[Rfam]
RNA sequence: CUUGGUGCUGUGAUUAUAAAACAAUUCCUCGUUCUGAAUGCUAUAGAUUCGGCAUGACAGACCCUUCUAACACCCAUAGAAUAUGAGCACCA
Dot-bracket structure: ..((.((................................................................................)).))
Rfam assigns this 92-nucleotide sequence from Ensete ventricosum to the family "Small nucleolar RNA snoR8a". It is annotated as a C/D-box small nucleolar RNA. A search with the family's covariance model found it, with a score of 91 bits. Gene Ontology terms of the family: nucleolus and RNA processing.